[Rfam]
RNA sequence: UUGCCUUAAACUAAUGAGUAAGGAAAAUAACGAUCUGGGUGACGCCAGAUCUGUGGCUAGUGUCACUUUCAAUUUUUCUCGGGAUUACAGGCUGCCCUCGGGUGACCCGCUUACUUCUGCGGGAUGCCUGUGUUGUAGCGGCCUCCG
Numbered sequence: 001u002u003g004c005c006u007u008a009a010a011c012u013a014a015u016g017a018g019u020a021a022g023g024a025a026a027a028u029a030a031c032g033a034u035c036u037g038g039g040u041g042a043c044g045c046c047a048g049a050u051c052u053g054u055g056g057c058u059a060g061u062g063u064c065a066c067u068u069u070c071a072a073u074u075u076u077u078c079u080c081g082g083g084a085u086u087a088c089a090g091g092c093u094g095c096c097c098u099c100g101g102g103u104g105a106c107c108c109g110c111u112u113a114c115u116u117c118u119g120c121g122g123g124a125u126g127c128c129u130g131u132g133u134u135g136u137a138g139c140g141g142c143c144u145c146c147g
Base pairs, nucleotide, nucleotide: 004023005022006021007020008019032051033050034049035048036047037046038045053066054065055064056063057062082146083145089144090143091142092141093140094139095138097132100129101128102127103126104125106123107122108121109120110119
The family of this 147-nucleotide sequence from Desmophyllum pertusum is "U12 minor spliceosomal RNA". The base pairs follow the family's consensus structure. The family is grouped with related families in Rfam's "U2 clan". A reference for the family is Tarn and Steitz (1997), "Pre-mRNA splicing: the discovery of a new spliceosome doubles the challenge", Trends Biochem Sci. By type it is a spliceosomal small nuclear RNA. Gene Ontology terms of the family: pre-mRNA branch point binding, mRNA branch site recognition and U12 snRNP.